The family of this 110-nucleotide sequence from Tetracentron sinense is "mir-172 microRNA precursor family". The source organism's lineage runs through Eukaryota, Streptophyta, Spermatophyta, Magnoliopsida and Tetracentron. Its family is annotated with RISC complex and miRNA-mediated post-transcriptional gene silencing in the Gene Ontology. The family has 11 seed sequences and 2,076 matches in Rfam 15.1. On this family, see Jones-Rhoades and Bartel, Mol Cell 2004: "Computational Identification of Plant MicroRNAs and Their Targets, Including a Stress-Induced miRNA".
RNA sequence: UUUAUUGCUGAUGCAGCAUCAUCAAGAUUCUCACCUUCAAAUACUUGGAAGAGAUAAAAUCUCCACCGUGCAUUGCAUGUGAAUCUUGAUGAUGCUACACCCGCAAACAA
Dot-bracket structure: .........(.((.((((((((((((((((.((............................................)).)))))))))))))))).)).).........